[Rfam]
Nucleotides: 134
Stems, first nucleotide, its partner, number of pairs: 009125003015119003020115002025110010036099005042093005048086003052082001054081007
Number, partner (000 for none) and nucleotide at each position: 001000a002000c003000c004000u005000g006000g007000a008000a009125g010124a011123g012000c013000a014000a015119g016118a017117a018000a019000g020115g021114a022000c023000g024000c025110c026109c027108u028107a029106a030105g031104a032103g033102c034101a035000g036099u037098a038097g039096g040095c041000a042093u043092g044091g045090g046089a047000a048086c049085a050084u051000g052082g053000a054081g055080g056079a057078a058077g059076g060075c061000c062000u063000a064000a065000a066000u067000c068000u069000c070000a071000u072000c073000g074000a075060g076059u077058c078057u079056u080055c081054c082052u083000g084050a085049u086048g087000c088000c089046u090045c091044c092043c093042a094000a095040g096039c097038c098037u099036a100000u101034u102033g103032u104031u105030c106029u107028u108027a109026g110025g111000u112000g113000c114021u115020c116000c117017u118016u119015c120000c121000c122000c123011u124010u125009c126000c127000a128000u129000u130000g131000g132000g133000a134000u